[Rfam]
RNA sequence: AGCGGGUUGAUGUAAUAGUAACAUAUAUGGCUCAUGCCCAUAAUAUUUAGGUGCAACUCCUAAAUCCGCUA
Numbered sequence: 001a002g003c004g005g006g007u008u009g010a011u012g013u014a015a016u017a018g019u020a021a022c023a024u025a026u027a028u029g030g031c032u033c034a035u036g037c038c039c040a041u042a043a044u045a046u047u048u049a050g051g052u053g054c055a056a057c058u059c060c061u062a063a064a065u066c067c068g069c070u071a
Stems, first nucleotide, its partner, number of pairs: 001070007010024004026042005047063005